Rfam assigns this 53-nucleotide RNA from Attibartonella tamiae to the family "serC leader". Rfam classes the family as a cis-regulatory leader. A reference for the family is Corbino et al. (2005), "Evidence for a second class of S-adenosylmethionine riboswitches and other regulatory RNA motifs in alpha-proteobacteria", Genome Biol. The base pairs follow the family's consensus structure. Rfam describes the family as follows. This family is a putative regulatory RNA structure that is found upstream of the serC-serA operon in some alpha-proteobacteria.

RNA sequence: AAGUGGGCCACCUCUUCCCAACGAGAGGCGUGCUAUCUGAAAGGGUAGAAUAU
Numbered sequence: 001a002a003g004u005g006g007g008c009c010a011c012c013u014c015u016u017c018c019c020a021a022c023g024a025g026a027g028g029c030g031u032g033c034u035a036u037c038u039g040a041a042a043g044g045g046u047a048g049a050a051u052a053u
Stems, first nucleotide, its partner, number of pairs: 011028006033048006